[Rfam]
RNA sequence: UAAUAUGGAACGCCGACUAAGAGCGCCACGUCCUGUGGCAACGUCGGCAUGACUCACAUCGUGUGAG
Numbered sequence: 001u002a003a004u005a006u007g008g009a010a011c012g013c014c015g016a017c018u019a020a021g022a023g024c025g026c027c028a029c030g031u032c033c034u035g036u037g038g039c040a041a042c043g044u045c046g047g048c049a050u051g052a053c054u055c056a057c058a059u060c061g062u063g064u065g066a067g
Stems, first nucleotide, its partner, number of pairs: 012048006025039005053067005
A member of the RNA family "Bacillaceae-1 RNA" from Bacillus sp. J14TS2, 67 nucleotides long. The base pairs follow the family's consensus structure, which is taken from published work. By type it is a small RNA. Taxonomically the source falls in Bacillus (Bacteria, Bacillati, Caryophanales, Bacillaceae).